[Rfam]
A member of the RNA family "BsrC" from Paenibacillus abyssi, 88 nucleotides long. Rfam's curators write: The 301 nucleotide sequence from Kouji Nakamura has been trimmed to a highly conserved ~85 nucleotide long core to form this family. Pairs were carried over by alignment from the consensus structure, which was predicted with CMfinder. A search with the family's covariance model found it, with a score of 83 bits. The literature on the family includes a 2008 paper in Gene by Saito et al., "Novel small RNA-encoding genes in the intergenic regions of Bacillus subtilis". The family has 29 seed sequences and 572 matches in Rfam 15.1.
RNA sequence: AAAACCUAAAACAACGAAAGCCCUGCCUCUCUUCCAUCCUUGCGGCUCCGAAGACCGCGCCAGUGUGAAUCGGGUAUAUCUAUAGAAA
Numbered sequence: 001a002a003a004a005c006c007u008a009a010a011a012c013a014a015c016g017a018a019a020g021c022c023c024u025g026c027c028u029c030u031c032u033u034c035c036a037u038c039c040u041u042g043c044g045g046c047u048c049c050g051a052a053g054a055c056c057g058c059g060c061c062a063g064u065g066u067g068a069a070u071c072g073g074g075u076a077u078a079u080c081u082a083u084a085g086a087a088a
Stems, first nucleotide, its partner, number of pairs: 035067002039063002041059005047053001